[Rfam]
RNA sequence: GGUCAUGAGCGUCAGCGAGAAGCCCUGGCUUGCUGACCGGCAACCCUCCCCCCGCGGUGGGGUGCCCCAGGUGACGACCCGGCCGAUGAUGUUCGGUAAGCGCGAGGC
Numbered sequence: 001g002g003u004c005a006u007g008a009g010c011g012u013c014a015g016c017g018a019g020a021a022g023c024c025c026u027g028g029c030u031u032g033c034u035g036a037c038c039g040g041c042a043a044c045c046c047u048c049c050c051c052c053c054g055c056g057g058u059g060g061g062g063u064g065c066c067c068c069a070g071g072u073g074a075c076g077a078c079c080c081g082g083c084c085g086a087u088g089a090u091g092u093u094c095g096g097u098a099a100g101c102g103c104g105a106g107g108c
Base pairs, nucleotide, nucleotide: 001079002078003077004076009038011037012036013035014034015033016032021030022029039066040065041064044062045061046060048057049056082097083096084095085094086093
Shown here is a 108-nucleotide sequence from Streptomyces longispororuber, a member of the family "SAM (S-adenosyl methionine) riboswitch aptamer".
Rfam 15.1 lists 2,360 matches to the family in 1,305 species.
From the family's description: SAM-IV is a mRNA element that regulates gene expression via direct sensing of S-adenosylmethionine (SAM or AdoMet). SAM-IV riboswitches share conserved nucleotide positions with the previously described SAM-I riboswitches sequence analysis and molecular recognition experiments suggest that SAM-I and SAM-IV riboswitches share similar ligand binding sites, but have different scaffolds.
The base pairs follow the family's consensus structure, which is taken from published work.
The source organism's lineage runs through Bacteria, Actinomycetota, Actinomycetes, Kitasatosporales and Streptomyces.
The literature on the family includes a 2008 paper in RNA by Weinberg et al., "The aptamer core of SAM-IV riboswitches mimics the ligand-binding site of SAM-I riboswitches".